mir-932 microRNA precursor family: a 74-nucleotide sequence from Tribolium castaneum. The base pairs follow the family's consensus structure, which was predicted with RNAalifold. On this family, see Stark et al., Genome Res 2007: "Systematic discovery and characterization of fly microRNAs using 12 Drosophila genomes". Its family is annotated with miRNA-mediated post-transcriptional gene silencing and RISC complex in the Gene Ontology.

[Rfam]
RNA sequence: GUGUCUUCAAUUCCGUAGUGCAUUGCAGUGUUUGUAGCAGCAGUCUGCAAGCAGUGCGGAAGUGAGGAUUCGUC
Numbered sequence: 001g002u003g004u005c006u007u008c009a010a011u012u013c014c015g016u017a018g019u020g021c022a023u024u025g026c027a028g029u030g031u032u033u034g035u036a037g038c039a040g041c042a043g044u045c046u047g048c049a050a051g052c053a054g055u056g057c058g059g060a061a062g063u064g065a066g067g068a069u070u071c072g073u074c
Stems, first nucleotide, its partner, number of pairs: 005067005012060005019053003023050005